Shown here is a 99-nucleotide sequence from Acidaminococcus intestini, a member of the family "TPP riboswitch aptamer (THI element)". It scores 67 bits against the family's covariance model. Vitamin B(1) in its active form thiamin pyrophosphate (TPP) is an essential coenzyme that is synthesised by coupling of pyrimidine and thiazole moieties in bacteria.

[Rfam]
RNA sequence: CGGUAACACUGGGGGUGCGCAUUCGCUGAGAGGCCCUUUGGCCGACCCUUUGUACCUGAUGCGGUUAAUACCGACGUAGGAAAGUGUGCCGGCCGGGCU
Numbered sequence: 001c002g003g004u005a006a007c008a009c010u011g012g013g014g015g016u017g018c019g020c021a022u023u024c025g026c027u028g029a030g031a032g033g034c035c036c037u038u039u040g041g042c043c044g045a046c047c048c049u050u051u052g053u054a055c056c057u058g059a060u061g062c063g064g065u066u067a068a069u070a071c072c073g074a075c076g077u078a079g080g081a082a083a084g085u086g087u088g089c090c091g092g093c094c095g096g097g098c099u
Base pairs, nucleotide, nucleotide: 006087007086008085009084010083011049012048013047014046017026018025019024033042034041035040055080056079057078058077062073063072064071